[Rfam]
RNA sequence: AAUCCGGAUGCGCCGACCUGUCGGAGCACCCGGAGCCGGGGAACCAUCGGUGGCGGGUCCGCCCGCCGCCCGGGGUGAAUCACCGGAAGGGUGACGGGACGCGUGCGUGCCGGGACCGGACCGGUGUAGGGCAAAUGUCGUGCCCGAAUCCGUCAGCUCACCCGGUAGGCGUACGACGUACCGAAGG
Numbered sequence: 001a002a003u004c005c006g007g008a009u010g011c012g013c014c015g016a017c018c019u020g021u022c023g024g025a026g027c028a029c030c031c032g033g034a035g036c037c038g039g040g041g042a043a044c045c046a047u048c049g050g051u052g053g054c055g056g057g058u059c060c061g062c063c064c065g066c067c068g069c070c071c072g073g074g075g076u077g078a079a080u081c082a083c084c085g086g087a088a089g090g091g092u093g094a095c096g097g098g099a100c101g102c103g104u105g106c107g108u109g110c111c112g113g114g115a116c117c118g119g120a121c122c123g124g125u126g127u128a129g130g131g132c133a134a135a136u137g138u139c140g141u142g143c144c145c146g147a148a149u150c151c152g153u154c155a156g157c158u159c160a161c162c163c164g165g166u167a168g169g170c171g172u173a174c175g176a177c178g179u180a181c182c183g184a185a186g187g
Base pairs, nucleotide, nucleotide: 003034004033005032006031007030035166036165037164038163039162040161045072073151074150075149081126082125083124084123085122086121129145130144131143132142
Notes:
This 187-nucleotide RNA from Nocardioides soli belongs to the Rfam family "c-di-AMP riboswitch aptamer (ydaO/yuaA leader)". It scores 50 bits against the family's covariance model. The source organism's lineage runs through Bacteria, Bacillati, Actinomycetota, Propionibacteriales and Nocardioides.